[Rfam]
RNA: narK RNA
RNA sequence: GGCACGCCGUUUGCUUUACCUUUUGCAAGGUUCGGCCAACGGCGGUCGAAUUCAUCAGACAAAGGCGUCUU
Numbered sequence: 001g002g003c004a005c006g007c008c009g010u011u012u013g014c015u016u017u018a019c020c021u022u023u024u025g026c027a028a029g030g031u032u033c034g035g036c037c038a039a040c041g042g043c044g045g046u047c048g049a050a051u052u053c054a055u056c057a058g059a060c061a062a063a064g065g066c067g068u069c070u071u
Stems, first nucleotide, its partner, number of pairs: 031050007